[Rfam]
The family of this 102-nucleotide RNA from Brevibacillus sp. SYP-B805 is "Purine riboswitch aptamer". The family's consensus secondary structure is taken from published work.
RNA sequence: ACCAACCGAGAGAAAAGUGUUCGUAUAAUCCCGGGAAUAUGGCUCGGGAGUCUCUACAGGGUUACCGCAAAUGACCCGGCUACGAACGGAACGGUACAGGGG
Numbered sequence: 001a002c003c004a005a006c007c008g009a010g011a012g013a014a015a016a017g018u019g020u021u022c023g024u025a026u027a028a029u030c031c032c033g034g035g036a037a038u039a040u041g042g043c044u045c046g047g048g049a050g051u052c053u054c055u056a057c058a059g060g061g062u063u064a065c066c067g068c069a070a071a072u073g074a075c076c077c078g079g080c081u082a083c084g085a086a087c088g089g090a091a092c093g094g095u096a097c098a099g100g101g102g
Stems, first nucleotide, its partner, number of pairs: 018088008029049007059077006